[Rfam]
RNA sequence: GACUCUUCUCAUGGGAACAAAGAGAAGCAAAUCUAUUCUCUACUUGAUAAGUAUCAAUACGCAAUGGGG
Numbered sequence: 001g002a003c004u005c006u007u008c009u010c011a012u013g014g015g016a017a018c019a020a021a022g023a024g025a026a027g028c029a030a031a032u033c034u035a036u037u038c039u040c041u042a043c044u045u046g047a048u049a050a051g052u053a054u055c056a057a058u059a060c061g062c063a064a065u066g067g068g069g
Base pairs, nucleotide, nucleotide: 003022004021006019009016010015043068044067045066051060052059053058
RNA: Plastid-clpP 5UTR RNA
Organism: Amborella trichopoda